The family of this 174-nucleotide RNA sequence from Brevibacillus fluminis is "ylbH leader". Rfam links the family to the GO term regulation of gene expression. The match comes from Rfam's covariance-model search (65 bits). Pairs were carried over by alignment from the consensus structure. The source organism's lineage runs through Bacteria, Bacillati, Bacillota, Bacilli and Brevibacillus. For this family Rfam cites "New RNA motifs suggest an expanded scope for riboswitches in bacterial genetic control" (Barrick et al., Proc Natl Acad Sci U S A, 2004). The family's RNA type in Rfam is cis-regulatory leader.
RNA sequence: CAAAAAAAUACCUCAUCCGGUUAGGGAUGAGGUAGCGGUCCGAACGUUCCCGCGCAGGGAACCAAUGCCGGUACGUUCCUAUCCAACGUACAAGCUCGCUUGGUCCGCAUUUCAAUUAUGGGAGAGGAGAAACCGGAGGAAGAGCUUAUGGGGAAACGUAAGUCUUCUCCGCGG
Numbered sequence: 001c002a003a004a005a006a007a008a009u010a011c012c013u014c015a016u017c018c019g020g021u022u023a024g025g026g027a028u029g030a031g032g033u034a035g036c037g038g039u040c041c042g043a044a045c046g047u048u049c050c051c052g053c054g055c056a057g058g059g060a061a062c063c064a065a066u067g068c069c070g071g072u073a074c075g076u077u078c079c080u081a082u083c084c085a086a087c088g089u090a091c092a093a094g095c096u097c098g099c100u101u102g103g104u105c106c107g108c109a110u111u112u113c114a115a116u117u118a119u120g121g122g123a124g125a126g127g128a129g130a131a132a133c134c135g136g137a138g139g140a141a142g143a144g145c146u147u148a149u150g151g152g153g154a155a156a157c158g159u160a161a162g163u164c165u166u167c168u169c170c171g172c173g174g
Stems, first nucleotide, its partner, number of pairs: 010033009039122003134171004139167004144163005
Dot-bracket structure: .........(((((((((......))))))))).....(((..............................................................................)))...........((((.((((.(((((..........)))))))))))))...